RNA sequence: UGGUUAGCCCUAUGCAAUAGGACUUAUAAGCAAUGCUUCAGGAUGGGAACAUAGCAGAGCACUUGUAUUUCUUGUGUGCCAUUGGUUCCUGGCUGGAA
Numbered sequence: 001u002g003g004u005u006a007g008c009c010c011u012a013u014g015c016a017a018u019a020g021g022a023c024u025u026a027u028a029a030g031c032a033a034u035g036c037u038u039c040a041g042g043a044u045g046g047g048a049a050c051a052u053a054g055c056a057g058a059g060c061a062c063u064u065g066u067a068u069u070u071c072u073u074g075u076g077u078g079c080c081a082u083u084g085g086u087u088c089c090u091g092g093c094u095g096g097a098a
Base pairs, nucleotide, nucleotide: 004092005091006090007089009085010084012082013081014080015076017075018074019073020072021071022070025067026066027065028064029063030062034061035060036059037058038057043052044051045050
RNA: Bacterial small signal recognition particle RNA